The record is a 173-nucleotide RNA sequence from Pasteurellaceae bacterium RH1A, which matches "Lysine riboswitch aptamer" in Rfam.
The family has 47 seed sequences and 3,224 matches in Rfam 15.1.
The source organism's lineage runs through Bacteria, Pseudomonadati, Gammaproteobacteria, Pasteurellales and Pasteurellaceae.
RNA sequence: ACAAUUUGUAGAGGUGCAAAUAUCAUAAGUAAAUUUUUCUGAGUGGAUAACGAUGAAGAAAGUUGAAAGGGGUAUUUGCCGAAAUCAAUUAAGCGUCAUCUUAAUUGGUUGGGGUCGUGUCCGAAAGGUGCGGCACUGUCACAAUAGCUUUAUUGUGUUGCGCUACUGUUAGG
Numbered sequence: 001a002c003a004a005u006u007u008g009u010a011g012a013g014g015u016g017c018a019a020a021u022a023u024c025a026u027a028a029g030u031a032a033a034u035u036u037u038u039c040u041g042a043g044u045g046g047a048u049a050a051c052g053a054u055g056a057a058g059a060a061a062g063u064u065g066a067a068a069g070g071g072g073u074a075u076u077u078g079c080c081g082a083a084a085u086c087a088a089u090u091a092a093g094c095g096u097c098a099u100c101u102u103a104a105u106u107g108g109u110u111g112g113g114g115u116c117g118u119g120u121c122c123g124a125a126a127g128g129u130g131c132g133g134c135a136c137u138g139u140c141a142c143a144a145u146a147g148c149u150u151u152a153u154u155g156u157g158u159u160g161c162g163c164u165a166c167u168g169u170u171a172g173g
Stems, first nucleotide, its partner, number of pairs: 006168001008166004016079009032064007083110011111137002114134008140157006